This 135-nucleotide RNA sequence from Erwinia tasmaniensis belongs to the Rfam family "Yersinia sRNA 155(RyfD)". The sRNA was identified by and is confirmed to have a stable secondary structure by using genome-wide structure probing at different temperatures. The function is unknown.

RNA sequence: UAAGACGGUCUGGAAUGGUGUUUUUUUCUCCAAAAUAUCCGGUCAUUUAACUUGAAAAUUUGAGGAUUGACCUCAUUUAAUCUCCAGUAGCAAUUUGACCUGAUAGGGGGAAAUUAUGCGUCUGGAUCGUCUUAC
Numbered sequence: 001u002a003a004g005a006c007g008g009u010c011u012g013g014a015a016u017g018g019u020g021u022u023u024u025u026u027u028c029u030c031c032a033a034a035a036u037a038u039c040c041g042g043u044c045a046u047u048u049a050a051c052u053u054g055a056a057a058a059u060u061u062g063a064g065g066a067u068u069g070a071c072c073u074c075a076u077u078u079a080a081u082c083u084c085c086a087g088u089a090g091c092a093a094u095u096u097g098a099c100c101u102g103a104u105a106g107g108g109g110g111a112a113a114u115u116a117u118g119c120g121u122c123u124g125g126a127u128c129g130u131c132u133u134a135c
Stems, first nucleotide, its partner, number of pairs: 002133011015117001017115003020040001023037001025035001027034001051064005066077001068075002081111005088105002